[Rfam]
RNA sequence: GGUUUCCGCGUCUAAUGUUUGACCGUCCAUCUUAUUUGAAAAAAAUUAAAAACAUAAGUCAUGCAUAAAAUAUUAUUCAUGUUUUAUCAUUUAACAAUAAUAAUAACACCAAUCAUAAAAAAAAAUUAUAUAAGACGGACGGUUAAACGUUGGACACGGAAACC
Numbered sequence: 001g002g003u004u005u006c007c008g009c010g011u012c013u014a015a016u017g018u019u020u021g022a023c024c025g026u027c028c029a030u031c032u033u034a035u036u037u038g039a040a041a042a043a044a045a046u047u048a049a050a051a052a053c054a055u056a057a058g059u060c061a062u063g064c065a066u067a068a069a070a071u072a073u074u075a076u077u078c079a080u081g082u083u084u085u086a087u088c089a090u091u092u093a094a095c096a097a098u099a100a101u102a103a104u105a106a107c108a109c110c111a112a113u114c115a116u117a118a119a120a121a122a123a124a125a126u127u128a129u130a131u132a133a134g135a136c137g138g139a140c141g142g143u144u145a146a147a148c149g150u151u152g153g154a155c156a157c158g159g160a161a162a163c164c
Stems, first nucleotide, its partner, number of pairs: 011154006018147011030135006

Rfam assigns this 164-nucleotide RNA sequence from Oryza sativa to the family "MIR812 microRNA precursor family".
Gene Ontology terms of the family: RISC complex and miRNA-mediated post-transcriptional gene silencing.
The base pairs follow the family's consensus structure, which was predicted with RNAalifold.
Lineage of the source: Eukaryota > Streptophyta > Embryophyta > Mesangiospermae > Oryza.